[Rfam]
RNA sequence: GUUGAAGUUCCAUUUACAAAUGGAUAAGACGUUUUUACUAGUCUGAAGUUAGACGAGUUUUUGGUUUCAAAGUAAGGGAGCAAUAAUCAUUUUAUUGAUUUUAAAAAUAGGCUUUGAUUAUUGCUCCCUU
Numbered sequence: 001g002u003u004g005a006a007g008u009u010c011c012a013u014u015u016a017c018a019a020a021u022g023g024a025u026a027a028g029a030c031g032u033u034u035u036u037a038c039u040a041g042u043c044u045g046a047a048g049u050u051a052g053a054c055g056a057g058u059u060u061u062u063g064g065u066u067u068c069a070a071a072g073u074a075a076g077g078g079a080g081c082a083a084u085a086a087u088c089a090u091u092u093u094a095u096u097g098a099u100u101u102u103a104a105a106a107a108u109a110g111g112c113u114u115u116g117a118u119u120a121u122u123g124c125u126c127c128c129u130u
Stems, first nucleotide, its partner, number of pairs: 009024005074130013088116002093111001095109001096105001
This 130-nucleotide RNA belongs to the Rfam family "Plastid-psbA-1 3UTR RNA".
The family's RNA type in Rfam is cis-regulatory element.
Rfam's curators put it in the seed alignment.
Clan: Plastid-psbA 3UTR RNA clan.
The base pairs follow the family's consensus structure, which was predicted with LocARNA.